[Rfam]
RNA sequence: AACUAAAUACAGCUCUUUUAGAAUUUGUUUAGCAAGUUUUCUGGUCAGCACUGGAACCACCCCA
Numbered sequence: 001a002a003c004u005a006a007a008u009a010c011a012g013c014u015c016u017u018u019u020a021g022a023a024u025u026u027g028u029u030u031a032g033c034a035a036g037u038u039u040u041c042u043g044g045u046c047a048g049c050a051c052u053g054g055a056a057c058c059a060c061c062c063c064a
Stems, first nucleotide, its partner, number of pairs: 036060002039056007
U7 small nuclear RNA: a 64-nucleotide RNA from Moschus moschiferus.
Rfam's curators write: Animal histone pre-mRNAs are spliced by a different mechanism than nuclear pre-mRNAs and self-splicing introns.